The record is a 79-nucleotide RNA from Neobacillus rhizophilus, which matches "ZMP/ZTP riboswitch aptamer (pfl RNA motif)" in Rfam. Lineage of the source: Bacteria > Bacillati > Bacilli > Caryophanales > Neobacillus. For this family Rfam cites "An ancient riboswitch class in bacteria regulates purine biosynthesis and one-carbon metabolism" (Kim et al., Mol Cell, 2015). Rfam 15.1 lists 3,295 matches to the family in 2,545 species.
RNA sequence: AAGGCCGUGUGUAACUGGCGAAACGCGGAUAACCGCGAGGGAGCACACGGUUUCGAAGCCGUUCGCCUGGGCAGAGGUA
Dot-bracket structure: ..((((((((((..(([[[[[...((((....))))..))..)))))))))).....(((..]]]]]..))).......
Numbered sequence: 001a002a003g004g005c006c007g008u009g010u011g012u013a014a015c016u017g018g019c020g021a022a023a024c025g026c027g028g029a030u031a032a033c034c035g036c037g038a039g040g041g042a043g044c045a046c047a048c049g050g051u052u053u054c055g056a057a058g059c060c061g062u063u064c065g066c067c068u069g070g071g072c073a074g075a076g077g078u079a
Stems, first nucleotide, its partner, number of pairs: 003052010015040002017067005025036004058072003